[Rfam]
RNA sequence: GAAGUCAUCCGGGUGGCCGCUGUCACCGGUUCCUUCGGGAGCUCAGGAGCAGAGGAAAGUCCGGACUCCACAGGGUAACGAUGCCGGCUAACGGCCGGGCGGGGCGACCCGACGGAAAGUGCCACAGAAACAUACCGCCUCAUUUUGGGUUCGCAAGGACCUAAUGCGAGGUAAGGGCGAAAUGGUGCGGUAAGAGCGCACCGGGCUUACGGAGACGUGAGCGCCGGGUAAACCCCAUCGGGAGCAAGGCCACAGGAUGCGGUUUGAGGCGACCCGCCGACGCGUCCGGUAGCGCCGCUAGAGGCGCCGGGCAACCGGCGUUCGAGAGAGAUGGCCACACAAACACAGAAUCCGGCUUAUAGGAUGACUUCACCA
Numbered sequence: 001g002a003a004g005u006c007a008u009c010c011g012g013g014u015g016g017c018c019g020c021u022g023u024c025a026c027c028g029g030u031u032c033c034u035u036c037g038g039g040a041g042c043u044c045a046g047g048a049g050c051a052g053a054g055g056a057a058a059g060u061c062c063g064g065a066c067u068c069c070a071c072a073g074g075g076u077a078a079c080g081a082u083g084c085c086g087g088c089u090a091a092c093g094g095c096c097g098g099g100c101g102g103g104g105c106g107a108c109c110c111g112a113c114g115g116a117a118a119g120u121g122c123c124a125c126a127g128a129a130a131c132a133u134a135c136c137g138c139c140u141c142a143u144u145u146u147g148g149g150u151u152c153g154c155a156a157g158g159a160c161c162u163a164a165u166g167c168g169a170g171g172u173a174a175g176g177g178c179g180a181a182a183u184g185g186u187g188c189g190g191u192a193a194g195a196g197c198g199c200a201c202c203g204g205g206c207u208u209a210c211g212g213a214g215a216c217g218u219g220a221g222c223g224c225c226g227g228g229u230a231a232a233c234c235c236c237a238u239c240g241g242g243a244g245c246a247a248g249g250c251c252a253c254a255g256g257a258u259g260c261g262g263u264u265u266g267a268g269g270c271g272a273c274c275c276g277c278c279g280a281c282g283c284g285u286c287c288g289g290u291a292g293c294g295c296c297g298c299u300a301g302a303g304g305c306g307c308c309g310g311g312c313a314a315c316c317g318g319c320g321u322u323c324g325a326g327a328g329a330g331a332u333g334g335c336c337a338c339a340c341a342a343a344c345a346c347a348g349a350a351u352c353c354g355g356c357u358u359a360u361a362g363g364a365u366g367a368c369u370u371c372a373c374c375a
Stems, first nucleotide, its partner, number of pairs: 001371010011360001013338006020052004026046001028044001057358003061355005066244004074275002079240005084098005099113001100111004114235002119233002121229003135176002137172005143166001145164008184202006203224001205222007248296003251292001256286006268278003303322008
Bacterial RNase P class A: a 375-nucleotide RNA sequence from Capsulimonas corticalis.
It is annotated as a ribozyme.
Its family is annotated with dimeric ribonuclease P complex, tRNA processing and ribonuclease P activity in the Gene Ontology.
NCBI's taxonomy places the organism under Bacteria, Bacillati, Armatimonadota, Capsulimonadales, Capsulimonas.